[Rfam]
Rfam assigns this 130-nucleotide RNA sequence from Oscillibacter sp. 1-3 to the family "c-di-GMP-I riboswitch aptamer". The source organism's lineage runs through Bacteria, Bacillati, Clostridia, Oscillospiraceae and Oscillibacter.
RNA sequence: GUAAGGCGAGGGCAAACCAUGGGAAACUGCGGGGCGCAAAGCUAUGGGGACUACGACGGUAAAACAGGUACCUGUUUUAAGUUUGCGGCAUGCCGCAAACUUAAUCCGUUAUGUCAGCCCGGCUGCUGGA
Numbered sequence: 001g002u003a004a005g006g007c008g009a010g011g012g013c014a015a016a017c018c019a020u021g022g023g024a025a026a027c028u029g030c031g032g033g034g035c036g037c038a039a040a041g042c043u044a045u046g047g048g049g050a051c052u053a054c055g056a057c058g059g060u061a062a063a064a065c066a067g068g069u070a071c072c073u074g075u076u077u078u079a080a081g082u083u084u085g086c087g088g089c090a091u092g093c094c095g096c097a098a099a100c101u102u103a104a105u106c107c108g109u110u111a112u113g114u115c116a117g118c119c120c121g122g123c124u125g126c127u128g129g130a
Base pairs, nucleotide, nucleotide: 012037013036017032018031020029021028022027040124041123042122043121046120047119048118049115050114051113056109057108058107059106
Dot-bracket structure: ...........((...((.(((....))).))...))..((((..((((((....((((..............................................))))...)))..)))))))......